[Rfam]
RNA: SAM riboswitch aptamer (S box leader)
RNA sequence: CUCUUAUCCAGAGAGGUGGAGGGAACUGGCCCGAUGAAACCCGGCAACCCAGGACGCUGCGGGGCGUCCGAAGGUGCCAACUCCACCGGCGGCCUCACGCCGCCGGAAGAUAAGAG
Dot-bracket structure: ((((((((....(.(((...(((...[[[)))......))))((((.(((.((.............)).)..))))))...(]]].((((((.......))))))..)))))))))